[Rfam]
RNA sequence: GAAUGGCGUCUUACCUGGACAUUAUUUAGACUUUAGUGCUCUAAUACUGUCAGGUAAUGACGCUGGUC
Numbered sequence: 001g002a003a004u005g006g007c008g009u010c011u012u013a014c015c016u017g018g019a020c021a022u023u024a025u026u027u028a029g030a031c032u033u034u035a036g037u038g039c040u041c042u043a044a045u046a047c048u049g050u051c052a053g054g055u056a057a058u059g060a061c062g063c064u065g066g067u068c
Base pairs, nucleotide, nucleotide: 001068002067004065005064006063007062008061009060010059011057012056013055014054015053016052017051020049021048023046024045025044026043028042029041030040
Background: The family of this 68-nucleotide RNA sequence from Caenorhabditis auriculariae is "mir-236 microRNA precursor family". The organism belongs to Caenorhabditis, within Eukaryota. The family is grouped with related families in Rfam's "mir-8 microRNA precursor clan". The family has 8 seed sequences and 52 matches in Rfam 15.1.